Shown here is a 35-nucleotide RNA sequence from Alfamovirus AMV, a member of the family "Alfalfa mosaic virus RNA 1 5' UTR stem-loop". Rfam classes the family as a cis-regulatory element. The sequence is in the family's curated seed alignment.
RNA sequence: GUUUUUAUCUUACACACGCUUGUGUAAGAUAGUUA
Dot-bracket structure: ....((((((((((((....))))))))))))...

The literature on the family includes a 2003 paper in J Virol by Vlot and Bol, "The 5' untranslated region of alfalfa mosaic virus RNA 1 is involved in negative-strand RNA synthesis".